[Rfam]
RNA sequence: CUUGCAAAACGUUCUAUCGCUCACGGCCAAACCGCGAGAGGAAAGUCCGGGCAACAUAGAGUAUCCUGCUUCCUAACGGGAAGGCGCCGGCAGCCGGCGACAGCAAGUGCCACAGAGAAUAUACCGCCUGUGAUUUAUCAUGGGUAAGGGUGAAAACGUGAGGUAAGAGCUCACGGCUUUUCCGGGCGACCGGGAUCGCGGUAAACCUCAGGAGUUGAAAAACCAAAUAGGUCCUGAAUCGGAAGUUACUCGCUUUUGAUUGUUUGCCACUGGCAGAUGAUCGUCAGGAUGGGUAGGUUGCUUGAACCUGUCAGCAAUGGCAGGGCCAGAUUAAUGAUAGAAACCGUCCUUCAACCGACGGAACAGAACCCGGCUUAUAGCUUUGCUGCUGAA
Numbered sequence: 001c002u003u004g005c006a007a008a009a010c011g012u013u014c015u016a017u018c019g020c021u022c023a024c025g026g027c028c029a030a031a032c033c034g035c036g037a038g039a040g041g042a043a044a045g046u047c048c049g050g051g052c053a054a055c056a057u058a059g060a061g062u063a064u065c066c067u068g069c070u071u072c073c074u075a076a077c078g079g080g081a082a083g084g085c086g087c088c089g090g091c092a093g094c095c096g097g098c099g100a101c102a103g104c105a106a107g108u109g110c111c112a113c114a115g116a117g118a119a120u121a122u123a124c125c126g127c128c129u130g131u132g133a134u135u136u137a138u139c140a141u142g143g144g145u146a147a148g149g150g151u152g153a154a155a156a157c158g159u160g161a162g163g164u165a166a167g168a169g170c171u172c173a174c175g176g177c178u179u180u181u182c183c184g185g186g187c188g189a190c191c192g193g194g195a196u197c198g199c200g201g202u203a204a205a206c207c208u209c210a211g212g213a214g215u216u217g218a219a220a221a222a223c224c225a226a227a228u229a230g231g232u233c234c235u236g237a238a239u240c241g242g243a244a245g246u247u248a249c250u251c252g253c254u255u256u257u258g259a260u261u262g263u264u265u266g267c268c269a270c271u272g273g274c275a276g277a278u279g280a281u282c283g284u285c286a287g288g289a290u291g292g293g294u295a296g297g298u299u300g301c302u303u304g305a306a307c308c309u310g311u312c313a314g315c316a317a318u319g320g321c322a323g324g325g326c327c328a329g330a331u332u333a334a335u336g337a338u339a340g341a342a343a344c345c346g347u348c349c350u351u352c353a354a355c356c357g358a359c360g361g362a363a364c365a366g367a368a369c370c371c372g373g374c375u376u377a378u379a380g381c382u383u384u385g386c387u388g389c390u391g392a393a
Stems, first nucleotide, its partner, number of pairs: 002388001004386005010380001011378001012342007020038003024034003043376003047373005052217004064213005069083005084101001085099004102208002107206002109202003124149002126145008157175006180195006221299004231290006307324007